[Rfam]
RNA sequence: UGCUGUGAUGACAUAAUUUGCAUCUUAUCCAGUGCUCAGCAGCAGUUGCCUGCUGUCAGCAUGCUGGCACUGAUGAGCUGACCGGUGUUUCCCUCUGAGCA
Numbered sequence: 001u002g003c004u005g006u007g008a009u010g011a012c013a014u015a016a017u018u019u020g021c022a023u024c025u026u027a028u029c030c031a032g033u034g035c036u037c038a039g040c041a042g043c044a045g046u047u048g049c050c051u052g053c054u055g056u057c058a059g060c061a062u063g064c065u066g067g068c069a070c071u072g073a074u075g076a077g078c079u080g081a082c083c084g085g086u087g088u089u090u091c092c093c094u095c096u097g098a099g100c101a
Stems, first nucleotide, its partner, number of pairs: 001101003023081002030072005039064002042056004

Shown here is a 101-nucleotide RNA sequence from Sylvietta virens, a member of the family "Small nucleolar RNA SNORD16". The family has 5 seed sequences and 1,321 matches in Rfam 15.1. The match comes from Rfam's covariance-model search (68 bits). Its Rfam clan is "SNORD16 clan". Its family is annotated with RNA processing and nucleolus in the Gene Ontology. On this family, see Huttenhofer et al., EMBO J 2001: "RNomics: an experimental approach that identifies 201 candidates for novel, small, non-messenger RNAs in mouse". Pairs were carried over by alignment from the consensus structure, which was predicted with PFOLD.